[Rfam]
RNA sequence: UUGCCGCCGGCAGGUCUUAUACGGCCAGCUCCUACCGAAACUCCCCAGGGUCGGAAGGCAGCAAGGAUAGGUGGUUGUAGCGGCGCGAUGUGAGUAGCCUGCCUUUUU
Numbered sequence: 001u002u003g004c005c006g007c008c009g010g011c012a013g014g015u016c017u018u019a020u021a022c023g024g025c026c027a028g029c030u031c032c033u034a035c036c037g038a039a040a041c042u043c044c045c046c047a048g049g050g051u052c053g054g055a056a057g058g059c060a061g062c063a064a065g066g067a068u069a070g071g072u073g074g075u076u077g078u079a080g081c082g083g084c085g086c087g088a089u090g091u092g093a094g095u096a097g098c099c100u101g102c103c104u105u106u107u108u
Stems, first nucleotide, its partner, number of pairs: 009103007017093005022087002024084002
Description:
Rfam assigns this 108-nucleotide RNA from Niabella ginsenosidivorans to the family "Bacteroidales small SRP". For this family Rfam cites "A high-resolution transcriptome map identifies small RNA regulation of metabolism in the gut microbe Bacteroides thetaiotaomicron" (Ryan et al., Nat Commun, 2020). By type it is a non-coding RNA gene. Rfam links the family to the GO terms SRP-dependent cotranslational protein targeting to membrane, signal sequence recognition and signal recognition particle, plasma membrane targeting.